[Rfam]
RNA: uup RNA
RNA sequence: GGAAAACCAGCUCUGUACAAUUCAAACCGAUGAAACGUUGUACAGAGC
Numbered sequence: 001g002g003a004a005a006a007c008c009a010g011c012u013c014u015g016u017a018c019a020a021u022u023c024a025a026a027c028c029g030a031u032g033a034a035a036c037g038u039u040g041u042a043c044a045g046a047g048c
Stems, first nucleotide, its partner, number of pairs: 011047005017041003